The record is a 128-nucleotide RNA sequence from Castor canadensis, which matches "Small nucleolar RNA SNORA40" in Rfam. Pairs were carried over by alignment from the consensus structure, which was predicted with RNAalifold. Rfam describes the family as follows. The snoRNA ACA 40 belongs to the H/ACA family of snoRNAs and guides the pseudouridylation of 28S rRNA subunit at position U4565. NB This family has a high threshold value to exclude a large number of closely related sequences that do not appear to have conserved H and ACA boxes, and may be pseudogenes. Rfam links the family to the GO terms nucleolus and RNA processing. A reference for the family is Ofengand and Bakin (1997), "Mapping to nucleotide resolution of pseudouridine residues in large subunit ribosomal RNAs from representative eukaryotes, prokaryotes, archaebacteria, mitochondria and chloroplasts", J Mol Biol. Rfam classes the family as an H/ACA-box small nucleolar RNA. Taxonomically the source falls in Castor (Eukaryota, Deuterostomia, Amniota, Castorimorpha).
RNA sequence: UACAAGUUUAAAAAGUUGUCAGUUCUUUGUGGACAAAGACUUAUAGAUGGAUGCAAAAAAUAAUUCCUCUUUUGCAACCCAGAACUCAUUGUACAGUAUGAGUUUUAAUAUGUAUGAGAGGGAAUCUG
Numbered sequence: 001u002a003c004a005a006g007u008u009u010a011a012a013a014a015g016u017u018g019u020c021a022g023u024u025c026u027u028u029g030u031g032g033a034c035a036a037a038g039a040c041u042u043a044u045a046g047a048u049g050g051a052u053g054c055a056a057a058a059a060a061u062a063a064u065u066c067c068u069c070u071u072u073u074g075c076a077a078c079c080c081a082g083a084a085c086u087c088a089u090u091g092u093a094c095a096g097u098a099u100g101a102g103u104u105u106u107a108a109u110a111u112g113u114a115u116g117a118g119a120g121g122g123a124a125u126c127u128g
Stems, first nucleotide, its partner, number of pairs: 001055001003053002007049001009047001015040001016036004026031001065124001067122002070119005081106009